RNase MRP: a 393-nucleotide RNA sequence from Psilocybe cubensis.
The match comes from Rfam's covariance-model search (94 bits).
RNA sequence: GUGCUGUCUGAAGAAUCGCUAUCGCAGCUCACGUACAGGAAGGUUAUAUGCUUUCCAUAUUCAGCUGUGGGGAAAGUCCCCGGAGAUGCAGAGCGUAUCCUCGACUAUCCUCGGAAAGCAGCCGCCUCUAAGCACGACGGCACAGUGAAGGAUGGACGAGAAUGUUCAGGCGGAUGCUCGAGAGUUCUCGCAACCGCUUCCAUCUUGUCCACUCUGCGGCCUUUCCAUACGAGUUACCGUCGAUAAAGGCGCGGGUGUGCGAAGAUAUGAGCAUGCUCGUUGCUCGGUGGUAUACUCGGACGGACAGGCUCUUCGUUGCUCAUAGAUACAGUUAUGCGAUUGUCUGACUCCUAGGAGUCUUAUCAACUCAAUGGGGCUCACUCUCGGCCAGCA
Numbered sequence: 001g002u003g004c005u006g007u008c009u010g011a012a013g014a015a016u017c018g019c020u021a022u023c024g025c026a027g028c029u030c031a032c033g034u035a036c037a038g039g040a041a042g043g044u045u046a047u048a049u050g051c052u053u054u055c056c057a058u059a060u061u062c063a064g065c066u067g068u069g070g071g072g073a074a075a076g077u078c079c080c081c082g083g084a085g086a087u088g089c090a091g092a093g094c095g096u097a098u099c100c101u102c103g104a105c106u107a108u109c110c111u112c113g114g115a116a117a118g119c120a121g122c123c124g125c126c127u128c129u130a131a132g133c134a135c136g137a138c139g140g141c142a143c144a145g146u147g148a149a150g151g152a153u154g155g156a157c158g159a160g161a162a163u164g165u166u167c168a169g170g171c172g173g174a175u176g177c178u179c180g181a182g183a184g185u186u187c188u189c190g191c192a193a194c195c196g197c198u199u200c201c202a203u204c205u206u207g208u209c210c211a212c213u214c215u216g217c218g219g220c221c222u223u224u225c226c227a228u229a230c231g232a233g234u235u236a237c238c239g240u241c242g243a244u245a246a247a248g249g250c251g252c253g254g255g256u257g258u259g260c261g262a263a264g265a266u267a268u269g270a271g272c273a274u275g276c277u278c279g280u281u282g283c284u285c286g287g288u289g290g291u292a293u294a295c296u297c298g299g300a301c302g303g304a305c306a307g308g309c310u311c312u313u314c315g316u317u318g319c320u321c322a323u324a325g326a327u328a329c330a331g332u333u334a335u336g337c338g339a340u341u342g343u344c345u346g347a348c349u350c351c352u353a354g355g356a357g358u359c360u361u362a363u364c365a366a367c368u369c370a371a372u373g374g375g376g377c378u379c380a381c382u383c384u385c386g387g388c389c390a391g392c393a
Stems, first nucleotide, its partner, number of pairs: 002393005008387004014341006022070007038056007075378002078376004249260004264314002270310003274306002277303004289296002342363002346359004

Source information:
RNase MRP is an enzymatically active ribonucleoprotein with two distinct roles in eukaryotes. In mitochondria it plays a direct role in the initiation of mitochondrial DNA replication. In the nucleus it is involved in precursor rRNA processing, where it cleaves the internal transcribed spacer 1 between 18S and 5.8S rRNAs.